[Rfam]
RNA: Small nucleolar RNA Z247
RNA sequence: GGUCUCAUAAGAUGAUUUAUGUAACCAGAUUCUUAAUGGUCUGGGUCCUGAGUAUGAUCCUGUUCAUACCUCCAUCUCUAAUCGGUAUUCUCCCAUUACAUUUGAUGAACUAUUUGGACAGCUACUUAGUUUUGAGA
Numbered sequence: 001g002g003u004c005u006c007a008u009a010a011g012a013u014g015a016u017u018u019a020u021g022u023a024a025c026c027a028g029a030u031u032c033u034u035a036a037u038g039g040u041c042u043g044g045g046u047c048c049u050g051a052g053u054a055u056g057a058u059c060c061u062g063u064u065c066a067u068a069c070c071u072c073c074a075u076c077u078c079u080a081a082u083c084g085g086u087a088u089u090c091u092c093c094c095a096u097u098a099c100a101u102u103u104g105a106u107g108a109a110c111u112a113u114u115u116g117g118a119c120a121g122c123u124a125c126u127u128a129g130u131u132u133u134g135a136g137a
Base pairs, nucleotide, nucleotide: 004136005135006134007133081106082105083104084103085102